[Rfam]
RNA: Plant small nucleolar RNA U3
Organism: Asparagus officinalis
RNA sequence: ACGACCUUACUUGAACAGGAUCUGUUCUAUAGGCUCGUACAACUGUAUCCUUGAGUUCUAAGGAGACAGGCCAAUCAGUCUGGUGGAUGACUAGUGGCCUCCGGCCCAGAGCGUGAUUGACGGUUCAGGUCCACUCUGGAUCGACGCUGUAGAGGAUCGUUCCCAGCUUAGCGUGAGCUUGCUGGGGCGGGCCGGAGUCUGUCUGACAGACU
Numbered sequence: 001a002c003g004a005c006c007u008u009a010c011u012u013g014a015a016c017a018g019g020a021u022c023u024g025u026u027c028u029a030u031a032g033g034c035u036c037g038u039a040c041a042a043c044u045g046u047a048u049c050c051u052u053g054a055g056u057u058c059u060a061a062g063g064a065g066a067c068a069g070g071c072c073a074a075u076c077a078g079u080c081u082g083g084u085g086g087a088u089g090a091c092u093a094g095u096g097g098c099c100u101c102c103g104g105c106c107c108a109g110a111g112c113g114u115g116a117u118u119g120a121c122g123g124u125u126c127a128g129g130u131c132c133a134c135u136c137u138g139g140a141u142c143g144a145c146g147c148u149g150u151a152g153a154g155g156a157u158c159g160u161u162c163c164c165a166g167c168u169u170a171g172c173g174u175g176a177g178c179u180u181g182c183u184g185g186g187g188c189g190g191g192c193c194g195g196a197g198u199c200u201g202u203c204u205g206a207c208a209g210a211c212u
Base pairs, nucleotide, nucleotide: 001038002037003035005033006032007031013027014026015025016024017023018022043069044068045067046066048064049063050062051061052060053059078211079210080209081208082207097199099197100196101195102194103193104192105191106190107189110161111160112159113158120150121149122148123147124146128142129141130140131139132138133137163185164184165183166182167181170179171178172177